A member of the RNA family "L31-Actinobacteria ribosomal protein leader" from Ricinus communis, 44 nucleotides long. The base pairs follow the family's consensus structure, which is taken from published work.

[Rfam]
RNA sequence: UCCGCUCCGGUUCACGUCCGCACACCCGUGCGACGACCCGGCGC
Numbered sequence: 001u002c003c004g005c006u007c008c009g010g011u012u013c014a015c016g017u018c019c020g021c022a023c024a025c026c027c028g029u030g031c032g033a034c035g036a037c038c039c040g041g042c043g044c
Stems, first nucleotide, its partner, number of pairs: 004044002007041004015035004020031004
On this family, see Eckert and Weinberg, BMC Microbiol 2020: "Discovery of 20 novel ribosomal leader candidates in bacteria and archaea".